[Rfam]
RNA: Purine riboswitch aptamer
RNA sequence: GGCGUGCCCAAACAAGCAACUCAUAUAAUAAUGGGGAUAAGGCCCAUAAGUAUCUACCGGACGACCAUUGCAAUUGUCCGACUAUGAGUGAAUAGCGCAGCCGG
Numbered sequence: 001g002g003c004g005u006g007c008c009c010a011a012a013c014a015a016g017c018a019a020c021u022c023a024u025a026u027a028a029u030a031a032u033g034g035g036g037a038u039a040a041g042g043c044c045c046a047u048a049a050g051u052a053u054c055u056a057c058c059g060g061a062c063g064a065c066c067a068u069u070g071c072a073a074u075u076g077u078c079c080g081a082c083u084a085u086g087a088g089u090g091a092a093u094a095g096c097g098c099a100g101c102c103g104g
Base pairs, nucleotide, nucleotide: 019089020088021087022086023085024084025083029049031047032046033045034044035043058080059079060078061077062076063075064074